About this RNA:
S4-Flavobacteria ribosomal protein leader: a 34-nucleotide RNA. By type it is a cis-regulatory leader. The sequence is in the family's curated seed alignment. Its Rfam clan is "Ribosomal Protein S4 Leader clan". A reference for the family is Eckert and Weinberg (2020), "Discovery of 20 novel ribosomal leader candidates in bacteria and archaea", BMC Microbiol.
RNA sequence: AGCCAUCGAAGGAAGUGACCUUAAUUCAUGGUUU
Numbered sequence: 001a002g003c004c005a006u007c008g009a010a011g012g013a014a015g016u017g018a019c020c021u022u023a024a025u026u027c028a029u030g031g032u033u034u
Stems, first nucleotide, its partner, number of pairs: 001034001002032005008027001009022004